[Rfam]
RNA sequence: UAUCCGCAUCAAGAAGUUAAGCAGUUAUUUUUAACGCCAACCGAGCGAGAAAAGCUACGGUGGUCAAAGGAUGAGGGUUUUAGAAACCAAAAAAGUUGAAAAGU
Number, nucleotide and partner (000 for none) at each position: 001u000002a000003u000004c000005c000006g000007c073008a072009u071010c070011a000012a000013g000014a000015a000016g000017u034018u033019a032020a031021g030022c000023a000024g000025u000026u000027a000028u000029u000030u021031u020032u019033a018034a017035c000036g064037c063038c062039a000040a000041c060042c059043g058044a056045g055046c054047g000048a000049g000050a000051a097052a096053a000054g046055c045056u044057a000058c043059g042060g041061u000062g038063g037064u036065c000066a000067a000068a000069g000070g010071a009072u008073g007074a000075g000076g088077g087078u086079u085080u000081u000082a000083g000084a000085a079086a078087c077088c076089a000090a000091a000092a000093a000094a000095g000096u052097u051098g000099a000100a000101a000102a000103g000104u000
Annotation
Rfam assigns this 104-nucleotide sequence from Arachidicoccus ginsenosidivorans to the family "SAM-I/IV (S-adenosyl methionine) riboswitch aptamer". Rfam links the family to the GO terms regulation of gene expression and S-adenosylmethionine metabolic process. The match comes from Rfam's covariance-model search (47 bits). The family's consensus secondary structure is taken from published work.